This 92-nucleotide RNA from Sulfobacillus sp. hq2 belongs to the Rfam family "Selenocysteine transfer RNA".
RNA sequence: GGGGGUAGUUGAGGGCAUGGUGCCUUCCUUGGACUUCAAAUCCAGUGGUCGGCGUUAGACGUCGAUGGUGGGUUCGAUUCCCACAUGCUCCC
Numbered sequence: 001g002g003g004g005g006u007a008g009u010u011g012a013g014g015g016c017a018u019g020g021u022g023c024c025u026u027c028c029u030u031g032g033a034c035u036u037c038a039a040a041u042c043c044a045g046u047g048g049u050c051g052g053c054g055u056u057a058g059a060c061g062u063c064g065a066u067g068g069u070g071g072g073u074u075c076g077a078u079u080c081c082c083a084c085a086u087g088c089u090c091c092c
Stems, first nucleotide, its partner, number of pairs: 001092007008084001011027006029045005048066005069083004
Pairs were carried over by alignment from the consensus structure, which is taken from published work. Its family is annotated with triplet codon-amino acid adaptor activity in the Gene Ontology. The match comes from Rfam's covariance-model search (66 bits). Clan: tRNA clan.